[Rfam]
RNA sequence: AUGUGAGGACGACCUCACCGCUCUAUUUUAUCAGGGGACGACCCC
Numbered sequence: 001a002u003g004u005g006a007g008g009a010c011g012a013c014c015u016c017a018c019c020g021c022u023c024u025a026u027u028u029u030a031u032c033a034g035g036g037g038a039c040g041a042c043c044c045c
Stems, first nucleotide, its partner, number of pairs: 003018006034045004
Dot-bracket structure: ..((((((....))))))...............((((....))))
Annotation: This 45-nucleotide RNA sequence from Psychrosphaera saromensis belongs to the Rfam family "Guanidine-II riboswitch aptamer (mini-ykkC)". From the family's description: Simpler in structure and has fewer highly conserved nucleotide positions than the ykkC-yxkD leader.